RNA: MIR2118 microRNA precursor family
Organism: Dichanthelium oligosanthes
RNA sequence: GCCAGGAAGAGGAAGAAAAGAGUGCAUAAGAGUAGUGUGAAUGAGAACAUCCAAGGAAAGACCAUCAGCUGGCUGAUUCCCUCCUGUAAAGGUGGAGAUUCGGGGUGUGGUGCUUCCUGAUGCCUCUCGUUCCUAUUGUUCUUGCGCGCUCAUUCCUUUUCCUUGUGGUU
Numbered sequence: 001g002c003c004a005g006g007a008a009g010a011g012g013a014a015g016a017a018a019a020g021a022g023u024g025c026a027u028a029a030g031a032g033u034a035g036u037g038u039g040a041a042u043g044a045g046a047a048c049a050u051c052c053a054a055g056g057a058a059a060g061a062c063c064a065u066c067a068g069c070u071g072g073c074u075g076a077u078u079c080c081c082u083c084c085u086g087u088a089a090a091g092g093u094g095g096a097g098a099u100u101c102g103g104g105g106u107g108u109g110g111u112g113c114u115u116c117c118u119g120a121u122g123c124c125u126c127u128c129g130u131u132c133c134u135a136u137u138g139u140u141c142u143u144g145c146g147c148g149c150u151c152a153u154u155c156c157u158u159u160u161c162c163u164u165g166u167g168g169u170u
Stems, first nucleotide, its partner, number of pairs: 009161005015155003020151003025146001027144008036135002039132008048122003053118001055117004061111001